RNA sequence: GCAAGACCCCCUCUACAACGGAUCGUCCGGCACGUUCCUGCCGGUGAAGGGAAGUGUUC
Numbered sequence: 001g002c003a004a005g006a007c008c009c010c011c012u013c014u015a016c017a018a019c020g021g022a023u024c025g026u027c028c029g030g031c032a033c034g035u036u037c038c039u040g041c042c043g044g045u046g047a048a049g050g051g052a053a054g055u056g057u058u059c
Stems, first nucleotide, its partner, number of pairs: 009051004014046002027044006
Dot-bracket structure: ........((((.((...........((((((......)))))))).))))........
Source information:
A member of the RNA family "msiK RNA" from Nocardia seriolae, 59 nucleotides long. A search with the family's covariance model found it, with a score of 60 bits. It is annotated as a cis-regulatory element. The base pairs follow the family's consensus structure, which is taken from published work.